[Rfam]
RNA sequence: GGAGUAAACUCUGGAGAAGCUCUAUACAGAGUGCCGAAGGUGCAAAGGCUCAGGAUUAUUCCUGCCCCAAUCUCUCAGGCAAAAGGACAGAGAAGAUAAG
Numbered sequence: 001g002g003a004g005u006a007a008a009c010u011c012u013g014g015a016g017a018a019g020c021u022c023u024a025u026a027c028a029g030a031g032u033g034c035c036g037a038a039g040g041u042g043c044a045a046a047g048g049c050u051c052a053g054g055a056u057u058a059u060u061c062c063u064g065c066c067c068c069a070a071u072c073u074c075u076c077a078g079g080c081a082a083a084a085g086g087a088c089a090g091a092g093a094a095g096a097u098a099a100g
Base pairs, nucleotide, nucleotide: 009092010091011090012089013088020031021030022029023028033080034079035078036076037075040074042072047067048066
The record is a 100-nucleotide RNA from Oribacterium sp. C9, which matches "Glycine riboswitch aptamer" in Rfam. The source organism's lineage runs through Bacteria, Bacillati, Clostridia, Lachnospirales and Oribacterium. The base pairs follow the family's consensus structure.